Rfam assigns this 83-nucleotide sequence from Atopobium deltae to the family "aspS RNA". Pairs were carried over by alignment from the consensus structure, which is taken from published work. The match comes from Rfam's covariance-model search (58 bits).
[Rfam]
RNA sequence: GCAUACGAUUUGCUGUCUACAAAACGCAUGCCGUCUUACUACAACAUCACCCGCCCCGGCACGGGGUGAUAUAGACGAAAGGA
Numbered sequence: 001g002c003a004u005a006c007g008a009u010u011u012g013c014u015g016u017c018u019a020c021a022a023a024a025c026g027c028a029u030g031c032c033g034u035c036u037u038a039c040u041a042c043a044a045c046a047u048c049a050c051c052c053g054c055c056c057c058g059g060c061a062c063g064g065g066g067u068g069a070u071a072u073a074g075a076c077g078a079a080a081g082g083a
Stems, first nucleotide, its partner, number of pairs: 001031004006026002009022001011021002033076004040071001046070007
Dot-bracket structure: ((((.((.(.((.......)))..)).)))).((((...(.....(((((((...........)))))))).)))).......